[Rfam]
RNA sequence: AAGCCCGUGAGGGAUUGUCUGGAGGAAGCCGGAGUGCAAGAGGUGCGAGGCGACGGACAGAAACCGCAUAGAAGGCCGAGGCAGGCGAGGCGAGCUGGCACAUGACAGCGAAGCCCAACGGUACGCCGGCCACGGUAAAUGCGGCGCUUGUGCACCGACAGUUCGCGUU
Numbered sequence: 001a002a003g004c005c006c007g008u009g010a011g012g013g014a015u016u017g018u019c020u021g022g023a024g025g026a027a028g029c030c031g032g033a034g035u036g037c038a039a040g041a042g043g044u045g046c047g048a049g050g051c052g053a054c055g056g057a058c059a060g061a062a063a064c065c066g067c068a069u070a071g072a073a074g075g076c077c078g079a080g081g082c083a084g085g086c087g088a089g090g091c092g093a094g095c096u097g098g099c100a101c102a103u104g105a106c107a108g109c110g111a112a113g114c115c116c117a118a119c120g121g122u123a124c125g126c127c128g129g130c131c132a133c134g135g136u137a138a139a140u141g142c143g144g145c146g147c148u149u150g151u152g153c154a155c156c157g158a159c160a161g162u163u164c165g166c167g168u169u
Base pairs, nucleotide, nucleotide: 001016002015004013005012006011028169030167031166036162037161042156043155044154045153046152047151048149049148050147051146052145064144065143066142067141068140069139075136076135077134080131081130082129084127085126089115090114091113094109095108096107097106
About this RNA
The record is a 169-nucleotide RNA sequence from Nitrosomonas europaea, which matches "Group II catalytic intron D1-D4-3" in Rfam. The pairing is the family consensus, mapped onto this sequence. Group II introns are found in rRNA, tRNA and mRNA of organelles in fungi, plants and protists, and also in mRNA in bacteria.